Purine riboswitch aptamer: a 102-nucleotide RNA from Paenibacillus swuensis. On this family, see Mandal et al., Cell 2003: "Riboswitches Control Fundamental Biochemical Pathways in Bacillus subtilis and Other Bacteria". The match comes from Rfam's covariance-model search (73 bits).
[Rfam]
RNA sequence: UCGAAAUCAAUCGAAUACACUCGUAUAUACUCGGGGAUAAGGCCCGGACGUUUCUACCCAAGAACCUUAAAUUUUUGGACUACGAGAACCAGAGAAAUUCGG
Dot-bracket structure: ...................((((((.....(((((.......)))))..........(((((((.......)))))))..))))))................

Source information
The family's consensus secondary structure is taken from published work.